[Rfam]
RNA sequence: UGACUGCGAUGAAGUGAAAGGUUGCUGACACACCCGGCCGCUUUGCCAUGGCGAGUGUGAGGAAAUUUUCACGGAGAAGGUCUAUUUAAAAAAGUAGGCGA
Numbered sequence: 001u002g003a004c005u006g007c008g009a010u011g012a013a014g015u016g017a018a019a020g021g022u023u024g025c026u027g028a029c030a031c032a033c034c035c036g037g038c039c040g041c042u043u044u045g046c047c048a049u050g051g052c053g054a055g056u057g058u059g060a061g062g063a064a065a066u067u068u069u070c071a072c073g074g075a076g077a078a079g080g081u082c083u084a085u086u087u088a089a090a091a092a093a094g095u096a097g098g099c100g101a
Base pairs, nucleotide, nucleotide: 014072015071016070018069019068020067021066025061026060028058029057030056031055080099081098082097083096084095085094086093
RNA: S10-Clostridia ribosomal protein leader
Organism: Litchfieldia stipae